[Rfam]
RNA sequence: UCUAGAACUUGAGAUAUGGGUUGAACACUGAAGAGUGCCUGGGCUGCCGGACAGAUUCAGACUUUUCCGUUGUUGCUGCAAUUUGGACUUGAAAACGACAUUUUUAAAUCUUGGACUCCUCAUGAAAGUUUUAGGCCUAUAUCUUAGCUUUGCAUC
Numbered sequence: 001u002c003u004a005g006a007a008c009u010u011g012a013g014a015u016a017u018g019g020g021u022u023g024a025a026c027a028c029u030g031a032a033g034a035g036u037g038c039c040u041g042g043g044c045u046g047c048c049g050g051a052c053a054g055a056u057u058c059a060g061a062c063u064u065u066u067c068c069g070u071u072g073u074u075g076c077u078g079c080a081a082u083u084u085g086g087a088c089u090u091g092a093a094a095a096c097g098a099c100a101u102u103u104u105u106a107a108a109u110c111u112u113g114g115a116c117u118c119c120u121c122a123u124g125a126a127a128g129u130u131u132u133a134g135g136c137c138u139a140u141a142u143c144u145u146a147g148c149u150u151u152g153c154a155u156c
Stems, first nucleotide, its partner, number of pairs: 003154001006151002008147002011145010021134005027129003035123003041119003045115001049111003054105002060099001063097001072088003

A member of the RNA family "MIR2912 microRNA precursor family" from Populus tomentosa, 156 nucleotides long. The family has 2 seed sequences and 15,051 matches in Rfam 15.1. The family's consensus secondary structure was predicted with RNAalifold. Rfam links the family to the GO terms miRNA-mediated post-transcriptional gene silencing and RISC complex. Taxonomically the source falls in Populus (Eukaryota, Streptophyta, Pentapetalae, Malpighiales). The match comes from Rfam's covariance-model search (118 bits).